[Rfam]
Nucleotides: 090
Stems, first nucleotide, its partner, number of pairs: 004026006028047007056082008
Number, partner (000 for none) and nucleotide at each position: 001000u002000c003000u004026c005025c006024c007023g008022c009021u010000u011000c012000u013000c014000c015000u016000c017000c018000c019000u020000g021009a022008g023007c024006g025005g026004g027000c028047g029046c030045c031044u032043u033042a034041a035000u036000c037000u038000g039000c040000a041034u042033u043032a044031a045030g046029g047028c048000a049000u050000c051000u052000u053000u054000u055000c056082c057081c058080c059079c060078g061077g062076u063075u064000u065000u066000a067000u068000c069000c070000c071000c072000u073000u074000u075063a076062a077061c078060c079059g080058g081057g082056g083000a084000u085000u086000u087000u088000u089000u090000u